[Rfam]
RNA sequence: UGAGAGUCGGGAGGCGCUGAUCCGCCGGCGGCUUCGCACGGCCACCACGCACCGGCGGGGAGCCACUGGUGAGACCGGCCCGCGGGCCG
Number, nucleotide and partner (000 for none) at each position: 001u089002g088003a000004g000005a000006g000007u000008c082009g081010g080011g079012a000013g064014g063015c062016g000017c000018u000019g000020a000021u000022c058023c057024g056025c055026c054027g053028g052029c000030g000031g050032c000033u000034u000035c000036g000037c000038a000039c000040g076041g075042c000043c071044a070045c069046c068047a000048c000049g000050c031051a000052c028053c027054g026055g025056c024057g023058g022059g000060g000061a000062g015063c014064c013065a000066c000067u000068g046069g045070u044071g043072a000073g000074a000075c041076c040077g000078g000079c011080c010081c009082g008083c000084g000085g000086g000087c000088c002089g001
The record is an 89-nucleotide RNA, which matches "c-di-GMP-II-GAG riboswitch aptamer" in Rfam. The family is grouped with related families in Rfam's "c-di-GMP_II riboswitch clan". It is one of the family's seed sequences. A reference for the family is Weinberg et al. (2017), "Bioinformatic analysis of riboswitch structures uncovers variant classes with altered ligand specificity", Proc Natl Acad Sci U S A.